[Rfam]
RNA sequence: AUUUUACAUAGCGCUGCAGAUGUGGCUGCUGUGUCACAUUUGUGUUAUUAGGUGGCAGAGAGAAGAGAGGCUAUGUCUAUGCUCAGUGUUCUGCCCCAUGAACAUUUGAAUGUUUAAUAGUCAGACACU
Number, nucleotide and partner (000 for none) at each position: 001a000002u058003u057004u000005u055006a000007c052008a048009u000010a046011g045012c044013g000014c000015u000016g043017c042018a041019g040020a000021u038022g037023u036024g035025g034026c033027u000028g000029c000030u000031g000032u000033g026034u025035c024036a023037c022038a021039u000040u019041u018042g017043u016044g012045u011046u010047a000048u008049u000050a000051g000052g007053u000054g000055g005056c000057a003058g002059a000060g000061a000062g000063a000064a000065g126066a000067g000068a000069g122070g121071c120072u119073a118074u117075g000076u000077c000078u000079a113080u112081g111082c000083u109084c108085a107086g106087u104088g103089u102090u101091c100092u000093g000094c000095c000096c000097c000098a000099u000100g091101a090102a089103c088104a087105u000106u086107u085108g084109a083110a000111u081112g080113u079114u000115u000116a000117a074118u073119a072120g071121u070122c069123a000124g000125a000126c065127a000128c000129u000
The record is a 129-nucleotide RNA, which matches "Small nucleolar RNA SNORA17" in Rfam. By type it is an H/ACA-box small nucleolar RNA. It is one of the family's seed sequences. Rfam's curators write: snoRNA ACA 17 belongs to the H/ACA family of snoRNAs and is predicted to guide pseudouridylation of the 28S rRNA at positions U4659 and U4598. It shares the same host gene together with ACA43. NB This family has a high threshold value to exclude a large number of closely related sequences that do not appear to have conserved H and ACA boxes, and may be pseudogenes. Rfam 15.1 lists 5,784 matches to the family in 673 species.